[Rfam]
RNA sequence: UAUAUGACAAAGGGGUGCCUGAAAAGGCUGAGAUUAUACCCUUAUAACCUGAUCCGGUCAAUGCCGGCGUAGGGAUUGUUUCUACAGUUCAC
Numbered sequence: 001u002a003u004a005u006g007a008c009a010a011a012g013g014g015g016u017g018c019c020u021g022a023a024a025a026g027g028c029u030g031a032g033a034u035u036a037u038a039c040c041c042u043u044a045u046a047a048c049c050u051g052a053u054c055c056g057g058u059c060a061a062u063g064c065c066g067g068c069g070u071a072g073g074g075a076u077u078g079u080u081u082c083u084a085c086a087g088u089u090c091a092c
Stems, first nucleotide, its partner, number of pairs: 006080005011042004016036001017028004048073004054067004

This 92-nucleotide RNA sequence from Bacteroidales bacterium KHT7 belongs to the Rfam family "TPP riboswitch aptamer (THI element)". Rfam's curators write: Vitamin B(1) in its active form thiamin pyrophosphate (TPP) is an essential coenzyme that is synthesised by coupling of pyrimidine and thiazole moieties in bacteria.